[Rfam]
RNA sequence: AAGCACUUGAUACUAACCGAGCUAUCUAUAUCCUGGUCUUGUGUCAAAGGCCGGUGAUAUGCUGUGGUAGCUGGGCUGAAGUAGUGCAAUAGUAAAACAAAAGCCAUGAGUCUUUUAAGCCCAGUGUGUGGAGACUCACUCUGAGUUAUAACUCAGAGGCACAGAU
Numbered sequence: 001a002a003g004c005a006c007u008u009g010a011u012a013c014u015a016a017c018c019g020a021g022c023u024a025u026c027u028a029u030a031u032c033c034u035g036g037u038c039u040u041g042u043g044u045c046a047a048a049g050g051c052c053g054g055u056g057a058u059a060u061g062c063u064g065u066g067g068u069a070g071c072u073g074g075g076c077u078g079a080a081g082u083a084g085u086g087c088a089a090u091a092g093u094a095a096a097a098c099a100a101a102a103g104c105c106a107u108g109a110g111u112c113u114u115u116u117a118a119g120c121c122c123a124g125u126g127u128g129u130g131g132a133g134a135c136u137c138a139c140u141c142u143g144a145g146u147u148a149u150a151a152c153u154c155a156g157a158g159g160c161a162c163a164g165a166u
Stems, first nucleotide, its partner, number of pairs: 003087005015077001017075002020072007027061006033054001035052006103160003124139003128135002140157007
RNA: Small Cajal body specific RNA 1
Organism: Jaculus jaculus